[Rfam]
RNA sequence: CUGUGCUUCGUGACGCCCUGGCUUAAAACCCGCGGCGGGCCAGGGCCGAUGUCUGCCAGAG
Numbered sequence: 001c002u003g004u005g006c007u008u009c010g011u012g013a014c015g016c017c018c019u020g021g022c023u024u025a026a027a028a029c030c031c032g033c034g035g036c037g038g039g040c041c042a043g044g045g046c047c048g049a050u051g052u053c054u055g056c057c058a059g060a061g
Stems, first nucleotide, its partner, number of pairs: 001061002004058002015046010030035001